Rfam assigns this 102-nucleotide sequence from Lysinibacillus sp. 2017 to the family "Purine riboswitch aptamer". Clan: Purine riboswitches. A search with the family's covariance model found it, with a score of 87 bits. Lineage of the source: Bacteria > Bacillota > Bacilli > Bacillaceae > Lysinibacillus.

[Rfam]
Nucleotides: 102
Stems, first nucleotide, its partner, number of pairs: 018088008029049001031047005058078007
Number, partner (000 for none) and nucleotide at each position: 001000c002000u003000u004000a005000a006000a007000u008000c009000a010000a011000a012000u013000a014000a015000c016000u017000u018088u019087a020086c021085u022084c023083g024082u025081a026000u027000a028000a029049u030000a031047g032046c033045a034044g035043g036000a037000a038000u039000a040000a041000g042000g043035c044034u045033u046032g047031c048000a049029a050000g051000u052000u053000u054000c055000u056000a057000c058078c059077g060076a061075u062074u063073u064072a065000c066000c067000g068000u069000a070000a071000a072064u073063a074062a075061a076060u077059c078058g079000a080000c081025u082024a083023u084022g085021a086020g087019u088018g089000a090000a091000g092000c093000a094000a095000g096000u097000u098000u099000a100000a101000c102000u